Rfam assigns this 95-nucleotide sequence from Sedonavirus tusconh to the family "wcaG RNA". The match comes from Rfam's covariance-model search (50 bits). By type it is a cis-regulatory element.
[Rfam]
RNA sequence: CAAGUCCCGAGACGACUAAAAACUCGCUCUGGUCGGGAUGGGUUUAACGACCCCUCGGGUUUCUUGUUUCCUAAAAACAAGUGGUGCGGGUGAUU
Numbered sequence: 001c002a003a004g005u006c007c008c009g010a011g012a013c014g015a016c017u018a019a020a021a022a023c024u025c026g027c028u029c030u031g032g033u034c035g036g037g038a039u040g041g042g043u044u045u046a047a048c049g050a051c052c053c054c055u056c057g058g059g060u061u062u063c064u065u066g067u068u069u070c071c072u073a074a075a076a077a078c079a080a081g082u083g084g085u086g087c088g089g090g091u092g093a094u095u
Base pairs, nucleotide, nucleotide: 009029010028011027013026014025015024040053041052042051043050057072058071059070063081064080065079066078067077068076